[Rfam]
RNA sequence: GCGUCUCCCGCUUCACAACGGAUCGUCCGGCACGUACCUGCCGGUGAAGGGAAUCGGUC
Numbered sequence: 001g002c003g004u005c006u007c008c009c010g011c012u013u014c015a016c017a018a019c020g021g022a023u024c025g026u027c028c029g030g031c032a033c034g035u036a037c038c039u040g041c042c043g044g045u046g047a048a049g050g051g052a053a054u055c056g057g058u059c
Base pairs, nucleotide, nucleotide: 009051011049012048013047014046015045027044028043029042030041031040032039
The family of this 59-nucleotide RNA sequence from Brachybacterium nesterenkovii is "msiK RNA".
Lineage of the source: Bacteria > Actinomycetota > Actinomycetes > Dermabacteraceae > Brachybacterium.
The family's RNA type in Rfam is cis-regulatory element.